[Rfam]
RNA sequence: ACUCAGGCACGAUUCGCCCGUAUUCCUAUGUUUUAUAGGAGAAGUAAGUAGUCUCGCUCAGUCCUAUUUAGAUAGGCAUUGUGGAGGGGCGGCGCGAAAGCGACCUGAAGUUCAAUCCUGAGGGA
Numbered sequence: 001a002c003u004c005a006g007g008c009a010c011g012a013u014u015c016g017c018c019c020g021u022a023u024u025c026c027u028a029u030g031u032u033u034u035a036u037a038g039g040a041g042a043a044g045u046a047a048g049u050a051g052u053c054u055c056g057c058u059c060a061g062u063c064c065u066a067u068u069u070a071g072a073u074a075g076g077c078a079u080u081g082u083g084g085a086g087g088g089g090c091g092g093c094g095c096g097a098a099a100g101c102g103a104c105c106u107g108a109a110g111u112u113c114a115a116u117c118c119u120g121a122g123g124g125a
Stems, first nucleotide, its partner, number of pairs: 001111003004107004013098005019092001026084005